Shown here is a 74-nucleotide RNA sequence from Flavobacterium enshiense, a member of the family "Flavo-1 RNA". The source organism's lineage runs through Bacteria, Bacteroidota, Flavobacteriales, Flavobacteriaceae and Flavobacterium enshiense. The match comes from Rfam's covariance-model search (64 bits).
RNA sequence: UUCUAGCCCUGAUGGGAGUGGCAUCCCGUCUCGUUUUUUCAACGAGGCGGAUAAAGCGGACAGCAGGAACAGGG
Numbered sequence: 001u002u003c004u005a006g007c008c009c010u011g012a013u014g015g016g017a018g019u020g021g022c023a024u025c026c027c028g029u030c031u032c033g034u035u036u037u038u039u040c041a042a043c044g045a046g047g048c049g050g051a052u053a054a055a056g057c058g059g060a061c062a063g064c065a066g067g068a069a070c071a072g073g074g
Stems, first nucleotide, its partner, number of pairs: 009066003013062002018057002023052004028048008